[Rfam]
RNA sequence: ACCUGCUUCCGAAGGCCGAAGGCGGCCCUCGGGGCAUCAGACACACACUGUGCCUGGGAAGAUAUAGGCACUUCAGGGCGUU
Numbered sequence: 001a002c003c004u005g006c007u008u009c010c011g012a013a014g015g016c017c018g019a020a021g022g023c024g025g026c027c028c029u030c031g032g033g034g035c036a037u038c039a040g041a042c043a044c045a046c047a048c049u050g051u052g053c054c055u056g057g058g059a060a061g062a063u064a065u066a067g068g069c070a071c072u073u074c075a076g077g078g079c080g081u082u
Base pairs, nucleotide, nucleotide: 004036005035006034007033009032010031011030012029014027015026016025017024018023050071051070052069053068054067055066
Shown here is an 82-nucleotide sequence from Streptomyces sp. ADI96-02, a member of the family "nrdJ RNA". Taxonomically the source falls in Streptomyces (Bacteria, Bacillati, Actinomycetota, Kitasatosporales). A search with the family's covariance model found it, with a score of 70 bits. By type it is a small RNA.